[Rfam]
RNA sequence: GCCCGCGUGGCUUAGUGGUAAAGCGUAUCACUAGUAAUGAUAAGAUCCUCGGUUCGAUUCCGAGUGUGGGCA
Numbered sequence: 001g002c003c004c005g006c007g008u009g010g011c012u013u014a015g016u017g018g019u020a021a022a023g024c025g026u027a028u029c030a031c032u033a034g035u036a037a038u039g040a041u042a043a044g045a046u047c048c049u050c051g052g053u054u055c056g057a058u059u060c061c062g063a064g065u066g067u068g069g070g071c072a
Stems, first nucleotide, its partner, number of pairs: 001071007010024004026042005048064005
Rfam assigns this 72-nucleotide RNA from Blastomyces silverae to the family "tRNA".
Taxonomically the source falls in Blastomyces (Eukaryota, Dikarya, Eurotiomycetes, Onygenales).
Clan: tRNA clan.
About the family: Transfer RNA (tRNA) molecules are approximately 80 nucleotides in length. Their secondary structure includes four short double-helical elements and three loops (D, anti-codon, and T loops). Further hydrogen bonds mediate the characteristic L-shaped molecular structure. tRNAs have two regions of fundamental functional importance: the anti-codon, which is responsible for specific mRNA codon recognition, and the 3' end, to which the tRNAs corresponding amino acid is attached (by aminoacyl-tRNA synthetases). tRNAs cope with the degeneracy of the genetic code in two manners: having more than one tRNA (with a specific anti-codon) for a particular amino acid; and 'wobble' base-pairing, i.e. permitting non-standard base-pairing at the 3rd anti-codon position.
It scores 67 bits against the family's covariance model.
Its family is annotated with triplet codon-amino acid adaptor activity in the Gene Ontology.